[Rfam]
RNA sequence: GCUGUUUCCGGGUGGAUGACUUUGCAAUUUUAGCAAUACUUGAUUUUUUUCUAUGAAAAAUUGCACGGUAUCCAUCUGUAAUCCGCU
Numbered sequence: 001g002c003u004g005u006u007u008c009c010g011g012g013u014g015g016a017u018g019a020c021u022u023u024g025c026a027a028u029u030u031u032a033g034c035a036a037u038a039c040u041u042g043a044u045u046u047u048u049u050u051c052u053a054u055g056a057a058a059a060a061u062u063g064c065a066c067g068g069u070a071u072c073c074a075u076c077u078g079u080a081a082u083c084c085g086c087u
Stems, first nucleotide, its partner, number of pairs: 009078009019069002023065009

Source information:
Rfam assigns this 87-nucleotide RNA sequence from Clarias magur to the family "mir-363 microRNA precursor family". It scores 76 bits against the family's covariance model. The literature on the family includes a 2007 paper in Physiol Genomics by Coutinho et al., "Discovery and profiling of bovine microRNAs from immune-related and embryonic tissues". Its family is annotated with miRNA-mediated post-transcriptional gene silencing and RISC complex in the Gene Ontology. The family is grouped with related families in Rfam's "mir-19 clan".